Notes:
The record is an 84-nucleotide RNA sequence from Liquorilactobacillus capillatus, which matches "SAM-III riboswitch aptamer (SMK box)" in Rfam. For this family Rfam cites "S-adenosylmethionine directly inhibits binding of 30S ribosomal subunits to the SMK box translational riboswitch RNA" (Fuchs et al., Proc Natl Acad Sci U S A, 2007).

RNA sequence: UCAUGUUACAGCACAUUCCCGAUAGGAUUCAUCUGUGUGAAGAUGCCUUGUAACCAAAUUAUUGAAUGGGGGAAUUAUAUCGUG
Number, nucleotide and partner (000 for none) at each position: 001u000002c000003a000004u000005g000006u000007u000008a000009c000010a000011g000012c000013a000014c000015a000016u074017u073018c072019c071020c070021g000022a000023u000024a048025g047026g046027a000028u041029u040030c039031a038032u037033c000034u000035g000036u000037g032038u031039g030040a029041a028042g000043a000044u000045g000046c026047c025048u024049u000050g000051u000052a000053a000054c069055c068056a000057a000058a000059u000060u000061a000062u000063u000064g000065a000066a000067u000068g055069g054070g020071g019072g018073a017074a016075u000076u000077a000078u000079a000080u000081c000082g000083u000084g000